Rfam assigns this 105-nucleotide sequence from Anisodus acutangulus to the family "Plastid-psbA-1 3UTR RNA".
A search with the family's covariance model found it, with a score of 59 bits.
The base pairs follow the family's consensus structure, which was predicted with LocARNA.
By type it is a cis-regulatory element.
About the family: Plastid psbA-1 is a non-coding RNA (ncRNA) present in plastids. It was identified in inverted repeat sequences in the 3 prime untranslate region (3UTR) of photosystem II quinone-binding protein (psbA).
Taxonomically the source falls in Anisodus (Eukaryota, Magnoliopsida, Mesangiospermae, Solanoideae).
The family is grouped with related families in Rfam's "Plastid-psbA 3UTR RNA clan".
RNA sequence: UAUAAACUAACCGAAGUCUUUUUUAGUAUAGUCUAUAGGAGGUUUUGAAAAGAAAUGAGCAAUAAUCAUUUUCUUGUUCUAUCAAGAGUGUGCUAUUGCUCCUUU
Number, nucleotide and partner (000 for none) at each position: 001u000002a000003u000004a000005a000006a000007c000008u000009a000010a000011c000012c000013g000014a000015a000016g000017u000018c000019u000020u000021u000022u000023u000024u000025a000026g000027u000028a000029u000030a000031g000032u000033c000034u000035a000036u000037a000038g000039g000040a000041g000042g000043u000044u000045u000046u000047g000048a000049a000050a000051a000052g000053a105054a104055a103056u000057g101058a100059g099060c098061a097062a096063u095064a094065a000066u000067c092068a091069u090070u000071u088072u087073c086074u085075u084076g000077u000078u000079c000080u000081a000082u000083c000084a075085a074086g073087a072088g071089u000090g069091u068092g067093c000094u064095a063096u062097u061098g060099c059100u058101c057102c000103u055104u054105u053